[Rfam]
RNA sequence: CUCGCAAGUUUGAUGCCACAGCAGAAGAAUUCAUGACACAGCCCUGUCAGAUUCCAACAAAUCUGCAAGUUCUGCU
Numbered sequence: 001c002u003c004g005c006a007a008g009u010u011u012g013a014u015g016c017c018a019c020a021g022c023a024g025a026a027g028a029a030u031u032c033a034u035g036a037c038a039c040a041g042c043c044c045u046g047u048c049a050g051a052u053u054c055c056a057a058c059a060a061a062u063c064u065g066c067a068a069g070u071u072c073u074g075c076u
Stems, first nucleotide, its partner, number of pairs: 012044001015042002020076007027039001048065006
The family of this 76-nucleotide RNA sequence from Crocodylus porosus is "Mammalian CPEB3 ribozyme". It scores 40 bits against the family's covariance model. Gene Ontology term of the family: RNA nuclease activity.